[Rfam]
RNA sequence: GAGCAAGCCAACUAAUCUGCUUAACCAAAUGUGUUUCUGAAUAAAUUUGGAAAAAGCUAGCAACAGUGAUGCCGUUUUAUGAGCCUUAAGGCUGUCUGAGGGCAUUAUGGUCCCUCAAAAUGGCCACAAUA
Numbered sequence: 001g002a003g004c005a006a007g008c009c010a011a012c013u014a015a016u017c018u019g020c021u022u023a024a025c026c027a028a029a030u031g032u033g034u035u036u037c038u039g040a041a042u043a044a045a046u047u048u049g050g051a052a053a054a055a056g057c058u059a060g061c062a063a064c065a066g067u068g069a070u071g072c073c074g075u076u077u078u079a080u081g082a083g084c085c086u087u088a089a090g091g092c093u094g095u096c097u098g099a100g101g102g103c104a105u106u107a108u109g110g111u112c113c114c115u116c117a118a119a120a121u122g123g124c125c126a127c128a129a130u131a
Stems, first nucleotide, its partner, number of pairs: 003061002006058002016043001018041001020039001071124004083111003087107003091103003
RNA: Small nucleolar RNA SNORA33
Organism: Jaculus jaculus